[Rfam]
RNA sequence: CAUUACCGCCACGGGAGUCCGGUGCACCGGCCGGACUGAGAGGUGGGCGCACGACCCACGACCGUUCGCACCUGAUCCGGAUCAUGCCGGCGCAGGGAGGCAGGCUCACCUCGGG
Numbered sequence: 001c002a003u004u005a006c007c008g009c010c011a012c013g014g015g016a017g018u019c020c021g022g023u024g025c026a027c028c029g030g031c032c033g034g035a036c037u038g039a040g041a042g043g044u045g046g047g048c049g050c051a052c053g054a055c056c057c058a059c060g061a062c063c064g065u066u067c068g069c070a071c072c073u074g075a076u077c078c079g080g081a082u083c084a085u086g087c088c089g090g091c092g093c094a095g096g097g098a099g100g101c102a103g104g105c106u107c108a109c110c111u112c113g114g115g
Stems, first nucleotide, its partner, number of pairs: 006103001008101003011065004017036007043059005071096004077090004
This 115-nucleotide RNA sequence from Saccharomonospora sp. CUA-673 belongs to the Rfam family "TPP riboswitch aptamer (THI element)". Gene Ontology term of the family: thiamine pyrophosphate binding. It scores 67 bits against the family's covariance model.